[Rfam]
RNA sequence: UGGACAAAUUACUGUAUUCGACUAUAUUCACGGUGUGAAACAGGGGAUUACACUGAUUUUAAACGGAAGAAAGUGUAUCAAUUAACAUAAUAGACUCAU
Numbered sequence: 001u002g003g004a005c006a007a008a009u010u011a012c013u014g015u016a017u018u019c020g021a022c023u024a025u026a027u028u029c030a031c032g033g034u035g036u037g038a039a040a041c042a043g044g045g046g047a048u049u050a051c052a053c054u055g056a057u058u059u060u061a062a063a064c065g066g067a068a069g070a071a072a073g074u075g076u077a078u079c080a081a082u083u084a085a086c087a088u089a090a091u092a093g094a095c096u097c098a099u
Stems, first nucleotide, its partner, number of pairs: 003097002009093003013089003017085002020083002023080001026078002029075003034065003037059003041055003

This 99-nucleotide RNA sequence from Nicotiana tabacum belongs to the Rfam family "MIR6152 microRNA precursor family". The base pairs follow the family's consensus structure, which was predicted with RNAalifold. Its family is annotated with miRNA-mediated post-transcriptional gene silencing and RISC complex in the Gene Ontology.